[Rfam]
A member of the RNA family "Y RNA" from Catharus ustulatus, 96 nucleotides long. The source organism's lineage runs through Eukaryota, Tetrapoda, Archelosauria, Australaves and Catharus.
RNA sequence: GGCUGGUCCGAUGGAAGUGAGUACACAGAAAUUAUUACUGUUAGUGAAACAAACACUUCUAUAUUCCACCCCACUGCUAAGUUUGACUAGUGUUUU
Numbered sequence: 001g002g003c004u005g006g007u008c009c010g011a012u013g014g015a016a017g018u019g020a021g022u023a024c025a026c027a028g029a030a031a032u033u034a035u036u037a038c039u040g041u042u043a044g045u046g047a048a049a050c051a052a053a054c055a056c057u058u059c060u061a062u063a064u065u066c067c068a069c070c071c072c073a074c075u076g077c078u079a080a081g082u083u084u085g086a087c088u089a090g091u092g093u094u095u096u
Base pairs, nucleotide, nucleotide: 002091003090004089005088006087007086008085010084011083016075017074018073019072021070027060028059030057
Dot-bracket structure: .(((((((.((....((((.(.....((.(..........................).)).........).)))).......))))))))).....

The base pairs follow the family's consensus structure, which is taken from published work.
Y RNAs are components of the Ro ribonucleoprotein particle (Ro RNP), in association with Ro60 and La proteins.